[Rfam]
RNA: small nucleolar RNA snoR117
Organism: Cynara cardunculus
RNA sequence: UGCCGAUGAUGUAUGAUGUAUUGUCCGUACCAUCUGAAAAGGUUUUUCCUUUGAUUAGUACACUCAUCCAAUUUCUGAGGCAU
Numbered sequence: 001u002g003c004c005g006a007u008g009a010u011g012u013a014u015g016a017u018g019u020a021u022u023g024u025c026c027g028u029a030c031c032a033u034c035u036g037a038a039a040a041g042g043u044u045u046u047u048c049c050u051u052u053g054a055u056u057a058g059u060a061c062a063c064u065c066a067u068c069c070a071a072u073u074u075c076u077g078a079g080g081c082a083u
Stems, first nucleotide, its partner, number of pairs: 001082004